The record is a 114-nucleotide RNA sequence from Rhodococcus maanshanensis, which matches "SAM (S-adenosyl methionine) riboswitch aptamer" in Rfam. Its Rfam clan is "SAM clan". Rfam links the family to the GO terms S-adenosylmethionine metabolic process and regulation of gene expression. For this family Rfam cites "The aptamer core of SAM-IV riboswitches mimics the ligand-binding site of SAM-I riboswitches" (Weinberg et al., RNA, 2008). The source organism's lineage runs through Bacteria, Bacillati, Actinomycetes, Mycobacteriales and Rhodococcus.

RNA sequence: GGUCAUGAGUAUCAGCUGACAGCCCCGGCUUGCUGAUCGGCAACCCUCGCGGAGCGGUGGGGUGCCCCGGGUGAGGACCGGGCUGUAUCCAUGCGGAUACGGCAAGCGCCCCUA
Numbered sequence: 001g002g003u004c005a006u007g008a009g010u011a012u013c014a015g016c017u018g019a020c021a022g023c024c025c026c027g028g029c030u031u032g033c034u035g036a037u038c039g040g041c042a043a044c045c046c047u048c049g050c051g052g053a054g055c056g057g058u059g060g061g062g063u064g065c066c067c068c069g070g071g072u073g074a075g076g077a078c079c080g081g082g083c084u085g086u087a088u089c090c091a092u093g094c095g096g097a098u099a100c101g102g103c104a105a106g107c108g109c110c111c112c113u114a
Base pairs, nucleotide, nucleotide: 001079002078003077004076009038011037012036013035014034015033016032021030022029039066040065041064044062045061046060048057082103083102084101085100086099087098088097089096090095